[Rfam]
RNA sequence: UGGAGGACUGAGAAGGUAAGACGGUUUAACUUGAUGCCGUAUCUUACUGGUUAUGGCCUCCGACAUCAUAGCAGUGCAAUAGCAACUCAUGUUUCCCUCCCUGCUAUGAGGGGAAGCAAUACUGCAUUUG
Numbered sequence: 001u002g003g004a005g006g007a008c009u010g011a012g013a014a015g016g017u018a019a020g021a022c023g024g025u026u027u028a029a030c031u032u033g034a035u036g037c038c039g040u041a042u043c044u045u046a047c048u049g050g051u052u053a054u055g056g057c058c059u060c061c062g063a064c065a066u067c068a069u070a071g072c073a074g075u076g077c078a079a080u081a082g083c084a085a086c087u088c089a090u091g092u093u094u095c096c097c098u099c100c101c102u103g104c105u106a107u108g109a110g111g112g113g114a115a116g117c118a119a120u121a122c123u124g125c126a127u128u129u130g
Stems, first nucleotide, its partner, number of pairs: 002061005015048004019042001021040005081123002085120001087118001093114005101108001
RNA: Small nucleolar RNA SNORA47